[Rfam]
Nucleotides: 127
Base pairs, nucleotide, nucleotide: 008077009076010075011074012073014028015027016026017025029048030047031046032045033044034043035042036041049072050071051070052069053068054067055066096125097124101121102120103119104118105117106116107115108114
Number, partner (000 for none) and nucleotide at each position: 001000a002000a003000a004000a005000a006000g007000g008077g009076c010075c011074a012073g013000u014028u015027g016026g017025c018000u019000a020000u021000a022000u023000a024000u025017g026016c027015c028014a029048u030047g031046c032045a033044u034043g035042g036041u037000u038000u039000a040000g041036g042035c043034c044033g045032u046031g047030c048029a049072c050071u051070g052069u053068a054067u055066g056000g057000a058000c059000a060000u061000c062000a063000a064000g065000a066055c067054a068053u069052a070051u071050g072049g073012c074011u075010g076009g077008c078000a079000g080000a081000a082000u083000u084000u085000c086000u087000g088000a089000a090000c091000c092000c093000u094000c095000c096125a097124a098000u099000a100000g101121g102120g103119u104118u105117g106116g107115c108114a109000c110000g111000c112000u113000u114108u115107g116106c117105c118104g119103a120102c121101c122000c123000u124097u125096u126000u127000u